[Rfam]
Notes: Betacoronavirus 3'UTR: a 316-nucleotide sequence from Betacoronavirus muris. Clan: Coronavirus 3' UTR. The source organism's lineage runs through Viruses, Riboviria, Cornidovirineae, Betacoronavirus and Murine hepatitis virus. On this family, see Sola et al., RNA Biol 2011: "RNA-RNA and RNA-protein interactions in coronavirus replication and transcription". Rfam describes the family as follows. The 3' UTR of betacoronaviruses is approximately 300-500 nucleotides long. Rfam links the family to the GO term viral RNA genome replication. The pairing is the family consensus, mapped onto this sequence.

RNA sequence: GACUCUAAUGUGUAAAGAGAAUGAAUCCUAUGUCGGCACUCGGUGGUAACCCCUCGCGAGAAAGUCGGGAUAGGACACUCUCUAUCAGAAUGGAUGUCUUGCUGUCAUAACAGAUAGAGAAGGUUGUGGCAGACCCUGUAUCAAUUAGUUGAAAGAGAUUGCAAAAUAGAGAAUGUGUGAGAGAAGUUAGCAAGGUCCUACGUCUAACCAUAAGAACGGCGAUAGGCGCCCCCUGGGAAGAGCUCACAUCAGGGUACUAUUCCUGCAAUGCCCUAGUAAAUGAAUGAAGUUGAUCAUGGCCAAUUGGAAGAAUCAC
Number, nucleotide and partner (000 for none) at each position: 001g000002a000003c000004u000005c000006u000007a000008a000009u000010g000011u000012g000013u000014a000015a000016a083017g082018a081019g080020a079021a000022u077023g076024a000025a000026u075027c074028c073029u072030a071031u070032g000033u068034c067035g066036g065037c000038a000039c060040u059041c058042g057043g000044u000045g054046g053047u000048a000049a000050c000051c000052c000053c046054u045055c000056g000057c042058g041059a040060g039061a000062a000063a000064g000065u036066c035067g034068g033069g000070a031071u030072a029073g028074g027075a026076c023077a022078c000079u020080c019081u018082c017083u016084a000085u000086c000087a000088g000089a000090a000091u000092g000093g314094a313095u312096g000097u311098c310099u309100u308101g000102c132103u131104g130105u129106c128107a127108u126109a125110a124111c123112a000113g000114a000115u000116a000117g000118a000119g000120a000121a000122g000123g111124u110125u109126g108127u107128g106129g105130c104131a103132g102133a000134c000135c000136c000137u000138g000139u000140a294141u293142c292143a291144a290145u289146u288147a000148g000149u279150u278151g277152a000153a000154a274155g273156a000157g000158a269159u268160u267161g000162c000163a000164a000165a000166a000167u000168a000169g000170a000171g000172a000173a000174u000175g249176u248177g247178u246179g245180a244181g243182a000183g000184a000185a000186g000187u000188u000189a000190g000191c000192a000193a000194g000195g000196u000197c226198c225199u224200a223201c221202g220203u219204c000205u000206a000207a000208c000209c000210a000211u000212a000213a000214g000215a000216a000217c000218g000219g203220c202221g201222a000223u200224a199225g198226g197227c000228g000229c237230c236231c235232c000233c000234u000235g231236g230237g229238a000239a000240g000241a000242g000243c181244u180245c179246a178247c177248a176249u175250c000251a000252g000253g000254g000255u000256a000257c000258u000259a000260u000261u000262c000263c000264u000265g000266c000267a160268a159269u158270g000271c000272c000273c155274u154275a000276g000277u151278a150279a149280a000281u000282g000283a000284a000285u000286g000287a000288a146289g145290u144291u143292g142293a141294u140295c000296a000297u000298g000299g000300c307301c306302a000303a000304u000305u000306g301307g300308a100309a099310g098311a097312a095313u094314c093315a000316c000